[Rfam]
RNA sequence: AACGCCCAUAUGAUGAAGUAUUGCGGAUGUAAAAAUUUAUCGUCUUGUCGGAAAAGCGCAAAAACGAUGUCGAAAUUUCCGUUGCCUUCCUUCUGAUCUGAGGCGU
Numbered sequence: 001a002a003c004g005c006c007c008a009u010a011u012g013a014u015g016a017a018g019u020a021u022u023g024c025g026g027a028u029g030u031a032a033a034a035a036u037u038u039a040u041c042g043u044c045u046u047g048u049c050g051g052a053a054a055a056g057c058g059c060a061a062a063a064a065c066g067a068u069g070u071c072g073a074a075a076u077u078u079c080c081g082u083u084g085c086c087u088u089c090c091u092u093c094u095g096a097u098c099u100g101a102g103g104c105g106u
Stems, first nucleotide, its partner, number of pairs: 003105003024081004

The family of this 106-nucleotide RNA from Colletotrichum musicola is "Small nucleolar RNA Z13/snr52". Rfam 15.1 lists 1,203 matches to the family in 866 species. The family's RNA type in Rfam is C/D-box small nucleolar RNA. Taxonomically the source falls in Colletotrichum orchidearum species complex (Eukaryota, Dikarya, saccharomyceta, Pezizomycotina).